[Rfam]
RNA sequence: GGUUUCCAUUGGUGCAAAUCCAAUUACGAUGAGAAGCAAUUCUCCAUUGGUAGCAAAUGGUUAUCCAUUAAGCGGAGGAAAUCUUAUU
Numbered sequence: 001g002g003u004u005u006c007c008a009u010u011g012g013u014g015c016a017a018a019u020c021c022a023a024u025u026a027c028g029a030u031g032a033g034a035a036g037c038a039a040u041u042c043u044c045c046a047u048u049g050g051u052a053g054c055a056a057a058u059g060g061u062u063a064u065c066c067a068u069u070a071a072g073c074g075g076a077g078g079a080a081a082u083c084u085u086a087u088u
Stems, first nucleotide, its partner, number of pairs: 009023004042077004046068002049065006
RNA: Plastid-rps12 3UTR RNA
Organism: Mitragyna speciosa